[Rfam]
RNA sequence: AAAUUGGCGAGAACAAUGUGAAUCAAGUAGUGUAGUGAUUCACGCGGUUCUCGA
Numbered sequence: 001a002a003a004u005u006g007g008c009g010a011g012a013a014c015a016a017u018g019u020g021a022a023u024c025a026a027g028u029a030g031u032g033u034a035g036u037g038a039u040u041c042a043c044g045c046g047g048u049u050c051u052c053g054a
Stems, first nucleotide, its partner, number of pairs: 008053007017044009
Background
The record is a 54-nucleotide sequence from Mikania micrantha, which matches "Plastid-ccsA-ndhD-1 3UTR RNA" in Rfam. Taxonomically the source falls in Mikania (Eukaryota, Spermatophyta, Mesangiospermae, Asterales). Plastid-ccsA-ndhD-1 is a non-coding RNA (ncRNA) recognised in plastids. It was found in the three prime untranslated region (3UTR) of ccsA and ndhD genes, its 3UTR location suggests a role in transcript maturation. The match comes from Rfam's covariance-model search (53 bits). Rfam 15.1 lists 1,322 matches to the family in 557 species.